The family of this 80-nucleotide RNA from Nyssa sinensis is "Small nucleolar RNA Z155". The organism belongs to Nyssa, within Eukaryota. Rfam links the family to the GO terms nucleolus and RNA processing. The literature on the family includes a 2003 paper in Nucleic Acids Res by Chen et al., "The high diversity of snoRNAs in plants: identification and comparative study of 120 snoRNA genes from Oryza sativa".

[Rfam]
RNA sequence: CAUUGAUAUGAGGAUAGAAGAUUCGGAAAAUAUGAUGUCGAUCGAGGAAAUAUUUCCAGACUACAAUUAUCUGAUCAAUG
Dot-bracket structure: ((((((....................................................................))))))
Numbered sequence: 001c002a003u004u005g006a007u008a009u010g011a012g013g014a015u016a017g018a019a020g021a022u023u024c025g026g027a028a029a030a031u032a033u034g035a036u037g038u039c040g041a042u043c044g045a046g047g048a049a050a051u052a053u054u055u056c057c058a059g060a061c062u063a064c065a066a067u068u069a070u071c072u073g074a075u076c077a078a079u080g
Stems, first nucleotide, its partner, number of pairs: 001080006